[Rfam]
The family of this 96-nucleotide RNA sequence from Theobroma cacao is "Small nucleolar RNA Z157/R69/R10".
It scores 77 bits against the family's covariance model.
Taxonomically the source falls in Theobroma (Eukaryota, Euphyllophyta, rosids, Malvales).
Its Rfam clan is "SNORD52 clan".
The base pairs follow the family's consensus structure, which was predicted with PFOLD.
Its family is annotated with nucleolus and RNA processing in the Gene Ontology.
Nucleotides: 096
Base pairs, nucleotide, nucleotide: 001096002095003094005092006091007090008089039070040069041068042067046063047061048060049059050058051057
Number, partner (000 for none) and nucleotide at each position: 001096a002095a003094g004000a005092g006091u007090g008089c009000g010000g011000u012000g013000a014000u015000g016000a017000a018000g019000c020000a021000a022000u023000u024000u025000u026000u027000u028000g029000u030000g031000g032000a033000c034000u035000a036000g037000a038000g039070u040069u041068u042067c043000u044000g045000a046063u047061c048060u049059g050058g051057g052000u053000u054000u055000u056000u057051c058050c059049u060048a061047g062000a063046a064000g065000u066000u067042g068041a069040a070039g071000a072000c073000u074000a075000c076000c077000u078000u079000g080000g081000c082000u083000a084000u085000u086000u087000g088000a089008g090007u091006a092005c093000c094003c095002u096001u